[Rfam]
RNA sequence: GUGGACAUCUUACCCGGCGGCAUUAGAUUGACCGGCUCUCUUCUAAUACUGUCAGGUAAAGAUGUCUCC
Dot-bracket structure: ..((((((((((((.(((((.((((((..............)))))).))))).))))).)))))))..
The family of this 69-nucleotide sequence from Capitella teleta is "mir-8/mir-141/mir-200 microRNA precursor family". The base pairs follow the family's consensus structure, which was predicted with RNAalifold. Its family is annotated with miRNA-mediated post-transcriptional gene silencing and RISC complex in the Gene Ontology. The source organism's lineage runs through Eukaryota, Eumetazoa, Lophotrochozoa, Sedentaria and Capitella.